RNA sequence: AUGGUUAUCUAAUUGAGAUUCAAACACUUUUCUUCAUGGAUUUAAGGUGUUCCAUUCAAACACACCUUAAAACUACAUAGAAAAGUGCUUGAAUCUCAAUUGGAUAACCG
Numbered sequence: 001a002u003g004g005u006u007a008u009c010u011a012a013u014u015g016a017g018a019u020u021c022a023a024a025c026a027c028u029u030u031u032c033u034u035c036a037u038g039g040a041u042u043u044a045a046g047g048u049g050u051u052c053c054a055u056u057c058a059a060a061c062a063c064a065c066c067u068u069a070a071a072a073c074u075a076c077a078u079a080g081a082a083a084a085g086u087g088c089u090u091g092a093a094u095c096u097c098a099a100u101u102g103g104a105u106a107a108c109c110g
Stems, first nucleotide, its partner, number of pairs: 003109007011101002014098010025087009041071010
RNA: MIR9746 microRNA precursor family
Organism: Glycine max